[Rfam]
A member of the RNA family "Purine riboswitch aptamer" from Paenibacillus xylanivorans, 100 nucleotides long. Pairs were carried over by alignment from the consensus structure, which is taken from published work.
RNA sequence: UAAAAAUUAAAUAUGCCGACUCGUAUAUGUGCAGGAAUAGGCCUGCAUGUCUCUACCCGAUCACCGGAAUGAUCGGACUACGGGAAAGAUCCUGCAACGU
Numbered sequence: 001u002a003a004a005a006a007u008u009a010a011a012u013a014u015g016c017c018g019a020c021u022c023g024u025a026u027a028u029g030u031g032c033a034g035g036a037a038u039a040g041g042c043c044u045g046c047a048u049g050u051c052u053c054u055a056c057c058c059g060a061u062c063a064c065c066g067g068a069a070u071g072a073u074c075g076g077a078c079u080a081c082g083g084g085a086a087a088g089a090u091c092c093u094g095c096a097a098c099g100u
Stems, first nucleotide, its partner, number of pairs: 020084006029048007057076007